MIR2275 microRNA precursor family: a 90-nucleotide RNA sequence from Quercus lobata. Rfam links the family to the GO terms miRNA-mediated post-transcriptional gene silencing and RISC complex. The family's consensus secondary structure was predicted with RNAalifold. The family has 13 seed sequences and 785 matches in Rfam 15.1.
RNA sequence: AAGCUGUAUGUGAGAAUUGGAUGAAAUUAAUCCCAUUGGCAUAGUUUAUCAUAUUGGGUUUAGUUUCCUCCAAUAUCUUACCUCCAGUCA
Numbered sequence: 001a002a003g004c005u006g007u008a009u010g011u012g013a014g015a016a017u018u019g020g021a022u023g024a025a026a027u028u029a030a031u032c033c034c035a036u037u038g039g040c041a042u043a044g045u046u047u048a049u050c051a052u053a054u055u056g057g058g059u060u061u062a063g064u065u066u067c068c069u070c071c072a073a074u075a076u077c078u079u080a081c082c083u084c085c086a087g088u089c090a
Stems, first nucleotide, its partner, number of pairs: 004087003008083001011080004016074006023067008032058002